Nucleotides: 185
Stems, first nucleotide, its partner, number of pairs: 003182013017169003033154004038148002041145002059129003063125003071118007083106002088102005
Number, partner (000 for none) and nucleotide at each position: 001000g002000u003182u004181u005180c006179c007178c008177u009176g010175g011174g012173g013172u014171g015170u016000g017169c018168g019167u020000g021000a022000u023000u024000u025000a026000u027000g028000c029000c030000u031000c032000g033154g034153u035152g036151c037000u038148a039147a040000c041145c042144u043000g044000a045000c046000a047000a048000g049000u050000g051000u052000u053000g054000u055000u056000a057000a058000a059129g060128g061127g062000g063125g064124c065123c066000g067000u068000c069000a070000c071118u072117g073116u074115u075114c076113c077112u078000c079000g080000u081000g082000u083106g084105c085000a086000c087000g088102c089101c090100c091099g092098g093000c094000g095000c096000g097000a098092c099091c100090g101089g102088g103000a104000a105084g106083c107000c108000u109000g110000a111000g112077a113076g114075g115074g116073g117072c118071a119000u120000a121000c122000a123065g124064g125063c126000g127061c128060c129059c130000g131000a132000c133000c134000u135000g136000g137000a138000u139000a140000u141000c142000c143000a144042g145041g146000u147039u148038u149000c150000u151036g152035u153034a154033c155000c156000g157000c158000a159000a160000g161000c162000a163000u164000g165000a166000c167019a168018c169017g170015g171014c172013g173012c174011u175010c176009u177008g178007g179006g180005g181004a182003a183000u184000c185000g